[Rfam]
RNA sequence: AGACUCAUUCUUAACGAGAAGGGCACUGUUGGUCACAGUGUCCAGAAAUUGUUAUUGGGGCUAAAUUGAGAUACAAGUUAAGCUUACAUUACAGUAAAUUUAUUGCAAUGGUGACAAUGAGUCCAGUAACAUUU
Dot-bracket structure: .(.(.((.............((((((...........))))))............)).).)...........((..(.........(((((.................))))).........)..)).......
Numbered sequence: 001a002g003a004c005u006c007a008u009u010c011u012u013a014a015c016g017a018g019a020a021g022g023g024c025a026c027u028g029u030u031g032g033u034c035a036c037a038g039u040g041u042c043c044a045g046a047a048a049u050u051g052u053u054a055u056u057g058g059g060g061c062u063a064a065a066u067u068g069a070g071a072u073a074c075a076a077g078u079u080a081a082g083c084u085u086a087c088a089u090u091a092c093a094g095u096a097a098a099u100u101u102a103u104u105g106c107a108a109u110g111g112u113g114a115c116a117a118u119g120a121g122u123c124c125a126g127u128a129a130c131a132u133u134u
Stems, first nucleotide, its partner, number of pairs: 002061001004059001006057002021043006073127002077123001087113005
Rfam assigns this 134-nucleotide RNA sequence from Catagonus wagneri to the family "Small nucleolar RNA SNORA1". The organism belongs to Catagonus, within Eukaryota. About the family: ACA1 is a member of the H/ACA class of snoRNA that guide the sites of modification of uridines to pseudouridines. Pairs were carried over by alignment from the consensus structure, which was predicted with PFOLD.